[Rfam]
Overview: This 59-nucleotide sequence from Eucalyptus grandis belongs to the Rfam family "Plastid-psbA-3 3UTR RNA". On this family, see Richter et al., Plant Commun 2023: "Retrograde signaling in plants: A critical review focusing on the GUN pathway and beyond". The source organism's lineage runs through Eukaryota, Streptophytina, Embryophyta, Eucalypteae and Eucalyptus. Rfam's curators write: Plastid psbA-3 is a non-coding RNA (ncRNA) present in plastids. It was identified in inverted repeat sequences in the 3 prime untranslate region (3UTR) of photosystem II quinone-binding protein (psbA). Its Rfam clan is "Plastid-psbA 3UTR RNA clan".
RNA sequence: AAAGAAGCAAUAACCAACACUCUUGAUAGAAAAAGAAAUCGGUUAUUGUUCCUUUAUUU
Numbered sequence: 001a002a003a004g005a006a007g008c009a010a011u012a013a014c015c016a017a018c019a020c021u022c023u024u025g026a027u028a029g030a031a032a033a034a035g036a037a038a039u040c041g042g043u044u045a046u047u048g049u050u051c052c053u054u055u056a057u058u059u
Stems, first nucleotide, its partner, number of pairs: 001055004006050009021036004
Dot-bracket structure: ((((.(((((((((......((((........)))).....))))))))).))))....